[Rfam]
RNA: T-box leader
RNA sequence: GAAAAAGCGUUGAUAAGGAGAAGUACGUGAAAUAUGUUUUUAAGAGAGGGUCAUCAUUGGCUGAGAGUGACCUAGGCCUCUAUUUUACGGAAAUGCACCUUUGAGCACUUGGCUGAAAUAUAGUAGGCUAGUCGGCUAAUCCCCGUUAAAGGACUUAAAGCGGAAAGUAUAUACCCUUAAGACAUUUGAGUCUAAUUUGACCAUACGUCCUGUCCUUCUUAUACUUUCAAUCAGAGUGGAACCGCGCGAAAUUUUGCGUCUCUGUC
Numbered sequence: 001g002a003a004a005a006a007g008c009g010u011u012g013a014u015a016a017g018g019a020g021a022a023g024u025a026c027g028u029g030a031a032a033u034a035u036g037u038u039u040u041u042a043a044g045a046g047a048g049g050g051u052c053a054u055c056a057u058u059g060g061c062u063g064a065g066a067g068u069g070a071c072c073u074a075g076g077c078c079u080c081u082a083u084u085u086u087a088c089g090g091a092a093a094u095g096c097a098c099c100u101u102u103g104a105g106c107a108c109u110u111g112g113c114u115g116a117a118a119u120a121u122a123g124u125a126g127g128c129u130a131g132u133c134g135g136c137u138a139a140u141c142c143c144c145g146u147u148a149a150a151g152g153a154c155u156u157a158a159a160g161c162g163g164a165a166a167g168u169a170u171a172u173a174c175c176c177u178u179a180a181g182a183c184a185u186u187u188g189a190g191u192c193u194a195a196u197u198u199g200a201c202c203a204u205a206c207g208u209c210c211u212g213u214c215c216u217u218c219u220u221a222u223a224c225u226u227u228c229a230a231u232c233a234g235a236g237u238g239g240a241a242c243c244g245c246g247c248g249a250a251a252u253u254u255u256g257c258g259u260c261u262c263u264g265u266c
Base pairs, nucleotide, nucleotide: 007106008105015101016100017099018098026089027088028087029086030085031084037076038075039074049072050071051070052069053068054067108131109130111129112128113127114126133145134144135143163228164227165226166225167224168223169222170221171220233263234262235261236260244259245258246257247256248255